[Rfam]
RNA sequence: AUUCUGGUUGAUCCUGCCAGAGGUCACUGCUAUCGGGGUUCGAUUAAGCCAUGCGAGUCGAGAGGGUUUAGACCCUCGGCGGACUGCUCAGUAACACGUGGAUAACCUGCCCUAAGGUGGAGGAUAACCCCGGGAAACUGGGGAUAAUACUCCAUAGGCUAGGGAUACUGGAAUGUUUCCUAGCCAAAAGUUCCGGCGCCUUAGGAUGGAUCUGCGGCCGAUUAGGUAGUUGUUGGGGUAACGGCCCAACAAGCCUGUAAUCGGUACGGGUUGUGGGAGCAAGAGCCCGGAGAUGGAAUCUGAGACACGAUUCCAGGCCCUACGGGGCGCAGCAGGCGCGAAAACUUUACAAUGCAGGAAACUGUGAUAAGGGAACCCCGAGUGCUCGUACACGCGAGCUGUCCAGGUGUGCAAAAAGCAUCUGAAGAAAGGGCCGGGCAAGACCGGUGCCAGCCGCCGCGGUAAUACCGGCGGCUCGAGUGGUGACCACUAUUAUUG
Numbered sequence: 001a002u003u004c005u006g007g008u009u010g011a012u013c014c015u016g017c018c019a020g021a022g023g024u025c026a027c028u029g030c031u032a033u034c035g036g037g038g039u040u041c042g043a044u045u046a047a048g049c050c051a052u053g054c055g056a057g058u059c060g061a062g063a064g065g066g067u068u069u070a071g072a073c074c075c076u077c078g079g080c081g082g083a084c085u086g087c088u089c090a091g092u093a094a095c096a097c098g099u100g101g102a103u104a105a106c107c108u109g110c111c112c113u114a115a116g117g118u119g120g121a122g123g124a125u126a127a128c129c130c131c132g133g134g135a136a137a138c139u140g141g142g143g144a145u146a147a148u149a150c151u152c153c154a155u156a157g158g159c160u161a162g163g164g165a166u167a168c169u170g171g172a173a174u175g176u177u178u179c180c181u182a183g184c185c186a187a188a189a190g191u192u193c194c195g196g197c198g199c200c201u202u203a204g205g206a207u208g209g210a211u212c213u214g215c216g217g218c219c220g221a222u223u224a225g226g227u228a229g230u231u232g233u234u235g236g237g238g239u240a241a242c243g244g245c246c247c248a249a250c251a252a253g254c255c256u257g258u259a260a261u262c263g264g265u266a267c268g269g270g271u272u273g274u275g276g277g278a279g280c281a282a283g284a285g286c287c288c289g290g291a292g293a294u295g296g297a298a299u300c301u302g303a304g305a306c307a308c309g310a311u312u313c314c315a316g317g318c319c320c321u322a323c324g325g326g327g328c329g330c331a332g333c334a335g336g337c338g339c340g341a342a343a344a345c346u347u348u349a350c351a352a353u354g355c356a357g358g359a360a361a362c363u364g365u366g367a368u369a370a371g372g373g374a375a376c377c378c379c380g381a382g383u384g385c386u387c388g389u390a391c392a393c394g395c396g397a398g399c400u401g402u403c404c405a406g407g408u409g410u411g412c413a414a415a416a417a418g419c420a421u422c423u424g425a426a427g428a429a430a431g432g433g434c435c436g437g438g439c440a441a442g443a444c445c446g447g448u449g450c451c452a453g454c455c456g457c458c459g460c461g462g463u464a465a466u467a468c469c470g471g472c473g474g475c476u477c478g479a480g481u482g483g484u485g486a487c488c489a490c491u492a493u494u495a496u497u498g
Base pairs, nucleotide, nucleotide: 004020005019006018007017008016022488023487024486025485026484027483028482029481030480031479033381034380035379036378037377038376039375040374041373042339048337049336050335052334053333054332057080058079059078062077063076064075065074066073067072087292088291089290097216098215099214100213101212102211103210106209107208111205112204113203114202115201116200117199119153120152121151122150128143129142130141131140132139133138158184159183160182161181162180163179164178165177167176168175190197191196218264219263220262225255226254227253230252231251232250233249234248235247236246237245267289268288269287270286271282272281273280274279294315295314296313297312298311299310317328318327319326320325345371347370348369349368353366354365355364356363357362384399385398386397387396388395389394404424405423406422407421408420409419410418431477432476433475434474435473436472444471445470446469447468453460454459
This 498-nucleotide part of an RNA from Methanolacinia petrolearia belongs to the Rfam family "Archaeal small subunit ribosomal RNA". The sequence is in the family's curated seed alignment. Clan: SSU clan. Lineage of the source: Archaea > Methanobacteriati > Methanomicrobia > Methanolacinia > Methanolacinia petrolearia. The family has 86 seed sequences and 709 matches in Rfam 15.1. The literature on the family includes a 2001 paper in Science by Yusupov et al., "Crystal structure of the ribosome at 5.5 A resolution".